[Rfam]
A member of the RNA family "glycine-GGAnGA riboswitch aptamer" from Desulfosporosinus acididurans, 198 nucleotides long. For this family Rfam cites "Bioinformatic analysis of riboswitch structures uncovers variant classes with altered ligand specificity" (Weinberg et al., Proc Natl Acad Sci U S A, 2017). Rfam describes the family as follows. glycine-GGAnGA riboswitch is a variant of glycine riboswitch that have in common a U69A change. This riboswitch is associate with genes that encode either saccharopine dehydrogenase or amino acid transporters and other genes with not predicted function. Its family is annotated with glycine biosynthetic process in the Gene Ontology. It scores 114 bits against the family's covariance model.

RNA sequence: CCGAAUGAUACUAGCAGGAGAGAUUUGGGAGAAGUCCCAGACGCCGAAGGAGAAAAUCCCUUGAAGUCGCUUUUCAAGGGGGGAAACUCUCAGGCAAAGGUACGGCUAGUAGACGGUACUCUGGAGAGUUUCUCUUCACAGGGAACACCAAAGGGGAAGCCGGAAGACGGCGAAUCUCUCAGGUUAAAGGACAGAGAA
Numbered sequence: 001c002c003g004a005a006u007g008a009u010a011c012u013a014g015c016a017g018g019a020g021a022g023a024u025u026u027g028g029g030a031g032a033a034g035u036c037c038c039a040g041a042c043g044c045c046g047a048a049g050g051a052g053a054a055a056a057u058c059c060c061u062u063g064a065a066g067u068c069g070c071u072u073u074u075c076a077a078g079g080g081g082g083g084a085a086a087c088u089c090u091c092a093g094g095c096a097a098a099g100g101u102a103c104g105g106c107u108a109g110u111a112g113a114c115g116g117u118a119c120u121c122u123g124g125a126g127a128g129u130u131u132c133u134c135u136u137c138a139c140a141g142g143g144a145a146c147a148c149c150a151a152a153g154g155g156g157a158a159g160c161c162g163g164a165a166g167a168c169g170g171c172g173a174a175u176c177u178c179u180c181a182g183g184u185u186a187a188a189g190g191a192c193a194g195a196g197a198a
Stems, first nucleotide, its partner, number of pairs: 001116003010110006017103001022042001024041007043095003049091001050089003057081010119196005128146001130145004147184003153180001155177003